[Rfam]
RNA sequence: CACGCGUGCACGGGAGAGCGUGCCGGCUUCGUGCGACGAACCGCACGCCGGCGCCGCCGAAGGGGCAACCCACAAACUCUCAGGUACAAGGACCGUGCGCGCCGG
Numbered sequence: 001c002a003c004g005c006g007u008g009c010a011c012g013g014g015a016g017a018g019c020g021u022g023c024c025g026g027c028u029u030c031g032u033g034c035g036a037c038g039a040a041c042c043g044c045a046c047g048c049c050g051g052c053g054c055c056g057c058c059g060a061a062g063g064g065g066c067a068a069c070c071c072a073c074a075a076a077c078u079c080u081c082a083g084g085u086a087c088a089a090g091g092a093c094c095g096u097g098c099g100c101g102c103c104g105g
Base pairs, nucleotide, nucleotide: 006100007099008098009097010096011095012094013093020054021053022052023051024050025049026048027047056085057084058083059081060080063079064078065077
Dot-bracket structure: .....((((((((......((((((((...................)))))))).(((((..(((...........))))).))).......)))))))).....